[Rfam]
Shown here is an 84-nucleotide RNA sequence from Operophtera brumata, a member of the family "mir-275 microRNA precursor family". Taxonomically the source falls in Operophtera (Eukaryota, Neoptera, Eumetabola, Heteroneura). The base pairs follow the family's consensus structure, which was predicted with RNAalifold. It scores 65 bits against the family's covariance model.

RNA sequence: AGAGCGGUGGCGGUGCGCGCUACUCGGGCUCCGGGGCUGUCCUAUCGAGUCAGGUACCUGAAGUAGCGCGCGCUGCUGCCGCCG
Numbered sequence: 001a002g003a004g005c006g007g008u009g010g011c012g013g014u015g016c017g018c019g020c021u022a023c024u025c026g027g028g029c030u031c032c033g034g035g036g037c038u039g040u041c042c043u044a045u046c047g048a049g050u051c052a053g054g055u056a057c058c059u060g061a062a063g064u065a066g067c068g069c070g071c072g073c074u075g076c077u078g079c080c081g082c083c084g
Base pairs, nucleotide, nucleotide: 009077010076011075012074014072016070017069018068019067020066021065022064031054032053035051036050037049038048